RNA sequence: UUUGGCCUCGCUUACUUUGGUAUGGCGGGAAACUGGGCAAAGGUAAUA
Numbered sequence: 001u002u003u004g005g006c007c008u009c010g011c012u013u014a015c016u017u018u019g020g021u022a023u024g025g026c027g028g029g030a031a032a033c034u035g036g037g038c039a040a041a042g043g044u045a046a047u048a
Stems, first nucleotide, its partner, number of pairs: 006043003010038005018031001021028001
A member of the RNA family "Hepatitis C virus stem-loop SL1412 RNA", 48 nucleotides long. Pairs were carried over by alignment from the consensus structure, which was predicted with RNAfold. HCV_SL1412 is a stem-loop in the coding region of the C (core) gene. The literature on the family includes a 2016 paper in Mol Cell by Pirakitikulr et al., "The Coding Region of the HCV Genome Contains a Network of Regulatory RNA Structures". The sequence is in the family's curated seed alignment.